This 100-nucleotide sequence from Sediminibacillus albus belongs to the Rfam family "Purine riboswitch aptamer".
It scores 83 bits against the family's covariance model.
Rfam 15.1 lists 4,097 matches to the family in 1,411 species.
[Rfam]
RNA sequence: UAGAUAAACUUUAAUACGCCUCAUAUAAUUUUGGGAAUAUGGCCCGAUAGUCUCUACCCGUCACCGUAAAUGACGGACUAUGAGGGAGGAUGCAAUUGCU
Numbered sequence: 001u002a003g004a005u006a007a008a009c010u011u012u013a014a015u016a017c018g019c020c021u022c023a024u025a026u027a028a029u030u031u032u033g034g035g036a037a038u039a040u041g042g043c044c045c046g047a048u049a050g051u052c053u054c055u056a057c058c059c060g061u062c063a064c065c066g067u068a069a070a071u072g073a074c075g076g077a078c079u080a081u082g083a084g085g086g087a088g089g090a091u092g093c094a095a096u097u098g099c100u
Stems, first nucleotide, its partner, number of pairs: 019085007029049001031047005058076006
Pairs were carried over by alignment from the consensus structure, which is taken from published work.